[Rfam]
RNA sequence: UGUUCCGGUGCGAGGGGCGCUCUUUCCCAAGGACCACGAGGGUGAAAGAACCCCACCAAGCCCCACCCCUCCCGCCCGCAGCGCAAACUCACUCCCGCGAGUGAAUAUGCCAACUCGGCUGGUUUCGGCACGGGUUGUCUGCCCUACGCUCGCCCCAACACCACCGCAGACAUGCGACGGCCCUCGCCGGGACGGCAAUCCCAGUGCGAGGGCCUGACCACCGAGGAAGAGAGACCUUCCCG
Number, nucleotide and partner (000 for none) at each position: 001u000002g000003u000004u000005c000006c000007g222008g221009u220010g219011c000012g000013a000014g000015g000016g076017g075018c074019g073020c000021u000022c000023u000024u000025u000026c000027c000028c000029a000030a000031g000032g000033a000034c000035c000036a000037c000038g000039a000040g000041g000042g000043u000044g000045a000046a000047a000048g000049a000050a000051c000052c000053c000054c000055a000056c000057c000058a000059a000060g000061c000062c000063c000064c000065a000066c000067c000068c000069c000070u000071c000072c000073c019074g018075c017076c016077c000078g000079c000080a000081g000082c000083g000084c000085a000086a000087a000088c000089u104090c103091a102092c101093u100094c099095c000096c000097g000098c000099g094100a093101g092102u091103g090104a089105a000106u000107a000108u000109g000110c000111c000112a000113a000114c000115u000116c000117g000118g154119c000120u152121g151122g150123u000124u000125u000126c000127g000128g000129c000130a000131c000132g000133g000134g000135u000136u000137g000138u000139c000140u000141g000142c000143c000144c000145u000146a000147c000148g000149c000150u122151c121152g120153c000154c118155c000156c000157a000158a000159c000160a000161c000162c000163a000164c000165c000166g000167c000168a000169g000170a000171c000172a000173u000174g000175c000176g000177a000178c000179g214180g213181c212182c211183c210184u000185c208186g207187c206188c000189g202190g201191g200192a199193c000194g000195g000196c000197a000198a000199u192200c191201c190202c189203a000204g000205u000206g187207c186208g185209a000210g183211g182212g181213c180214c179215u000216g000217a000218c000219c010220a009221c008222c007223g000224a000225g240226g239227a238228a237229g236230a000231g000232a000233g000234a000235c000236c229237u228238u227239c226240c225241c000242g000

The record is a 242-nucleotide RNA sequence from Streptomyces sp. yr375, which matches "Streptomyces sRNA 4677" in Rfam. A reference for the family is Hindra et al. (2014), "Complex intra-operonic dynamics mediated by a small RNA in Streptomyces coelicolor", PLoS One. Pairs were carried over by alignment from the consensus structure. Taxonomically the source falls in Streptomyces (Bacteria, Bacillati, Actinomycetota, Kitasatosporales). From the family's description: Located in the intergenic region between anti-sigma factor SCO4677 gene and a putative regulatory protein gene SCO4676. scr4677 expression requires the SCO4677 activity and scr4677 sRNA itself seem to affect the levels of the SCO4676-associated transcripts.